MIR7502 microRNA precursor family: a 145-nucleotide sequence from Gossypium aridum. NCBI's taxonomy places the organism under Eukaryota, Streptophytina, Malvales, Malvaceae, Gossypium. The family has 6 seed sequences and 74,505 matches in Rfam 15.1. Pairs were carried over by alignment from the consensus structure, which was predicted with RNAalifold.
RNA sequence: UAUUAAAAGAUUAAUUCAUUUCUACCGUUAAAAACUGGCUUUUGUACGUCAACAUGAUGUACACGUGGUACACCACAUGUUACUAUCUGGUUAUUGUGUCAGCCAUGCCAGUUUUUAAAAGUAGAAAUAGAUGAAAUUUUUAAUA
Numbered sequence: 001u002a003u004u005a006a007a008a009g010a011u012u013a014a015u016u017c018a019u020u021u022c023u024a025c026c027g028u029u030a031a032a033a034a035c036u037g038g039c040u041u042u043u044g045u046a047c048g049u050c051a052a053c054a055u056g057a058u059g060u061a062c063a064c065g066u067g068g069u070a071c072a073c074c075a076c077a078u079g080u081u082a083c084u085a086u087c088u089g090g091u092u093a094u095u096g097u098g099u100c101a102g103c104c105a106u107g108c109c110a111g112u113u114u115u116u117a118a119a120a121g122u123a124g125a126a127a128u129a130g131a132u133g134a135a136a137u138u139u140u141u142a143a144u145a
Stems, first nucleotide, its partner, number of pairs: 002144008011135002014132003018128008028118006